[Rfam]
RNA sequence: UUGCACUUAAAUCAUAGGCCUCUUUACAUUUAUGUAGCAGGGCCUGAGCUAGGUGCAUAAAGUAAGGCAGUUUUGUUGGCAAAACUGUGAGGAUGGAUCCACUGGUAAAUGGCUCAAUGUGCUAUUUACCUACUAAUUCCAUCAUACAUUU
Numbered sequence: 001u002u003g004c005a006c007u008u009a010a011a012u013c014a015u016a017g018g019c020c021u022c023u024u025u026a027c028a029u030u031u032a033u034g035u036a037g038c039a040g041g042g043c044c045u046g047a048g049c050u051a052g053g054u055g056c057a058u059a060a061a062g063u064a065a066g067g068c069a070g071u072u073u074u075g076u077u078g079g080c081a082a083a084a085c086u087g088u089g090a091g092g093a094u095g096g097a098u099c100c101a102c103u104g105g106u107a108a109a110u111g112g113c114u115c116a117a118u119g120u121g122c123u124a125u126u127u128a129c130c131u132a133c134u135a136a137u138u139c140c141a142u143c144a145u146a147c148a149u150u151u
Base pairs, nucleotide, nucleotide: 002057003056004055005054006053013048015046016045017044018043019042020041021040024037025036026035090145092143093142094141095140096139097138107127108126109125110124111123112122
Dot-bracket structure: .(((((......(.(((((((..(((........)))..))))))).)....)))))................................(.((((((.........((((((.........))))))..........)))))).)......

Shown here is a 151-nucleotide sequence from Theobroma cacao, a member of the family "small nucleolar RNA snoR143".
Its family is annotated with RNA processing and nucleolus in the Gene Ontology.
The match comes from Rfam's covariance-model search (57 bits).
A reference for the family is Chen and Wu (2009), "Mining small RNA sequencing data: a new approach to identify small nucleolar RNAs in Arabidopsis", Nucleic Acids Res.
The family has 3 seed sequences and 660 matches in Rfam 15.1.